[Rfam]
RNA sequence: GCAUCUGAAACUCCCCCAGUCCCUGAGGUGCAGUGCUGUUCUGGGGACAUGUGAUGAUGCCACAGGAAAGCAGAGGAAAUCCAGACAAGCUCCCUUUCACCACACUGGGACUUGUCCCUACGCCUUUGCAACAUUU
Numbered sequence: 001g002c003a004u005c006u007g008a009a010a011c012u013c014c015c016c017c018a019g020u021c022c023c024u025g026a027g028g029u030g031c032a033g034u035g036c037u038g039u040u041c042u043g044g045g046g047a048c049a050u051g052u053g054a055u056g057a058u059g060c061c062a063c064a065g066g067a068a069a070g071c072a073g074a075g076g077a078a079a080u081c082c083a084g085a086c087a088a089g090c091u092c093c094c095u096u097u098c099a100c101c102a103c104a105c106u107g108g109g110a111c112u113u114g115u116c117c118c119u120a121c122g123c124c125u126u127u128g129c130a131a132c133a134u135u136u
Stems, first nucleotide, its partner, number of pairs: 001060005014046006022038001070129006084116006097108003
Dot-bracket structure: (((((........((((((..(...............)..)))))).........))))).........((((((........((((((.......(((......)))..)))))).......)))))).......
RNA: Small nucleolar RNA SNORA55
Organism: Oenanthe oenanthe